[Rfam]
RNA sequence: GUGCAGUGAUGUUUUUGUCAACACAUCAUUCUGAAUGAAAGUAUGUGGUGACUUCUUAUGACUGAGCACA
Numbered sequence: 001g002u003g004c005a006g007u008g009a010u011g012u013u014u015u016u017g018u019c020a021a022c023a024c025a026u027c028a029u030u031c032u033g034a035a036u037g038a039a040a041g042u043a044u045g046u047g048g049u050g051a052c053u054u055c056u057u058a059u060g061a062c063u064g065a066g067c068a069c070a
Base pairs, nucleotide, nucleotide: 001069002068003067004066
The record is a 70-nucleotide RNA sequence from Jaculus jaculus, which matches "Small nucleolar RNA SNORD63" in Rfam. Taxonomically the source falls in Jaculus (Eukaryota, Craniata, Sarcopterygii, Theria). Rfam describes the family as follows. snoRNA U63 is found in both humans and mice.